Description: A member of the RNA family "Plant signal recognition particle RNA" from Asparagus officinalis, 305 nucleotides long. By type it is a non-coding RNA gene. It scores 189 bits against the family's covariance model. Lineage of the source: Eukaryota > Viridiplantae > Tracheophyta > Spermatophyta > Asparagus. The base pairs follow the family's consensus structure, which is taken from published work.

[Rfam]
RNA sequence: GCCGAGUUCGUUAGCGUGAGCUUGUAACCAAGCGGGGCAUUAAAGUUGUGCGGACGCUGGGUCUUGUGGUUUGGCUUGGGUGCCGAGUGCAAUAUGCUGGCCCGCCCGUUCCAAGUUGGGCGGUGAUUGGCGUGAGCCGGGCGAAGGCCGUGGCCCACACCUCUCUUGAAGCGGAGGGCACCACGUGAGGCUGGCUUCACAGAGCAGCGAAAACCUCCCGCUCUCAACGGUGGAAGGAUAACGGGCCGCUGCGCUCUUCACCCGUUCGGGCCCAGCUGCGGUUCCUCCAGCGGACCAUCUCUUUU
Numbered sequence: 001g002c003c004g005a006g007u008u009c010g011u012u013a014g015c016g017u018g019a020g021c022u023u024g025u026a027a028c029c030a031a032g033c034g035g036g037g038c039a040u041u042a043a044a045g046u047u048g049u050g051c052g053g054a055c056g057c058u059g060g061g062u063c064u065u066g067u068g069g070u071u072u073g074g075c076u077u078g079g080g081u082g083c084c085g086a087g088u089g090c091a092a093u094a095u096g097c098u099g100g101c102c103c104g105c106c107c108g109u110u111c112c113a114a115g116u117u118g119g120g121c122g123g124u125g126a127u128u129g130g131c132g133u134g135a136g137c138c139g140g141g142c143g144a145a146g147g148c149c150g151u152g153g154c155c156c157a158c159a160c161c162u163c164u165c166u167u168g169a170a171g172c173g174g175a176g177g178g179c180a181c182c183a184c185g186u187g188a189g190g191c192u193g194g195c196u197u198c199a200c201a202g203a204g205c206a207g208c209g210a211a212a213a214c215c216u217c218c219c220g221c222u223c224u225c226a227a228c229g230g231u232g233g234a235a236g237g238a239u240a241a242c243g244g245g246c247c248g249c250u251g252c253g254c255u256c257u258u259c260a261c262c263c264g265u266u267c268g269g270g271c272c273c274a275g276c277u278g279c280g281g282u283u284c285c286u287c288c289a290g291c292g293g294a295c296c297a298u299c300u301c302u303u304u305u
Stems, first nucleotide, its partner, number of pairs: 001038003004023008028035002042304004048298003052295001055292005060284002063281002067278005073272004078263005085256001087254003092250001098248007106237002109235005115228006122221001125165002129161002132158003136154004140149003166171001173218005184209003191202003